[Rfam]
RNA sequence: GCGGAAAGCCGCUAGGGUUCCGGCCGGUCCGCAAGGUGAUGCGGGUCCGGCGACUGGUCCGAGAGCGGCGACCUGUCCGGUGAACAGCGGACGGGCACACGGCGGGACAAAAGCCCGGGAGGU
Numbered sequence: 001g002c003g004g005a006a007a008g009c010c011g012c013u014a015g016g017g018u019u020c021c022g023g024c025c026g027g028u029c030c031g032c033a034a035g036g037u038g039a040u041g042c043g044g045g046u047c048c049g050g051c052g053a054c055u056g057g058u059c060c061g062a063g064a065g066c067g068g069c070g071a072c073c074u075g076u077c078c079g080g081u082g083a084a085c086a087g088c089g090g091a092c093g094g095g096c097a098c099a100c101g102g103c104g105g106g107a108c109a110a111a112a113g114c115c116c117g118g119g120a121g122g123u
Base pairs, nucleotide, nucleotide: 008069009068010067011066012065015060016059020057021056022054023051024050025049026048027047072095073094074093075092076091077090078089098118100121104116105115106114
Rfam assigns this 123-nucleotide RNA from Azospirillum sp. B510 to the family "Guanidine-I riboswitch aptamer". Rfam's curators write: This family represents a conserved RNA structure found upstream of the ykkC and yxkD genes in Bacillus subtilis and related genes in other bacteria. Pairs were carried over by alignment from the consensus structure. The family has 100 seed sequences and 1,509 matches in Rfam 15.1.